[Rfam]
RNA sequence: GUAUUCUUUCGCGCAUGAACCGCAUUCAAUCCGAACUUCGACGUCGCCGCUCGCCGCUCCCUUAGGGACGCCGCCGGCUUCGUCACGGAUUCGCGCCGCACAAGGGCGCAAGCAGUUCGAAUCAUGAAAGCCACGGCAUGCCGUGGCUUUUUU
Numbered sequence: 001g002u003a004u005u006c007u008u009u010c011g012c013g014c015a016u017g018a019a020c021c022g023c024a025u026u027c028a029a030u031c032c033g034a035a036c037u038u039c040g041a042c043g044u045c046g047c048c049g050c051u052c053g054c055c056g057c058u059c060c061c062u063u064a065g066g067g068a069c070g071c072c073g074c075c076g077g078c079u080u081c082g083u084c085a086c087g088g089a090u091u092c093g094c095g096c097c098g099c100a101c102a103a104g105g106g107c108g109c110a111a112g113c114a115g116u117u118c119g120a121a122u123c124a125u126g127a128a129a130g131c132c133a134c135g136g137c138a139u140g141c142c143g144u145g146g147c148u149u150u151u152u153u
Stems, first nucleotide, its partner, number of pairs: 007120002011096004031088003039082003043078003046074002049071002054066001127150010
This 153-nucleotide sequence from Paraburkholderia fungorum belongs to the Rfam family "Burkholderia sRNA 7". Lineage of the source: Bacteria > Pseudomonadati > Betaproteobacteria > Burkholderiales > Paraburkholderia. Did not show any change in expression in iron-depletion and hydrogen peroxide (oxidative stress) treatment. Constitutively expressed. Possibly targets the GTPase, ObgE. The family's consensus secondary structure was predicted with R-scape. On this family, see Ghosh et al., Microbiology 2017: "Identification of novel small RNAs in Burkholderia cenocepacia KC-01 expressed under iron limitation and oxidative stress conditions".